[Rfam]
RNA: tRNA
Organism: Allocoleopsis franciscana
RNA sequence: AGCCUCAUCGUCUAGUGGUUAGGACGCUGCCCCCUCAAGGCAGAGACAGGAGUUCAAAUCUCCUUGGGGCUA
Numbered sequence: 001a002g003c004c005u006c007a008u009c010g011u012c013u014a015g016u017g018g019u020u021a022g023g024a025c026g027c028u029g030c031c032c033c034c035u036c037a038a039g040g041c042a043g044a045g046a047c048a049g050g051a052g053u054u055c056a057a058a059u060c061u062c063c064u065u066g067g068g069g070c071u072a
Stems, first nucleotide, its partner, number of pairs: 001071007010025004027043005048064005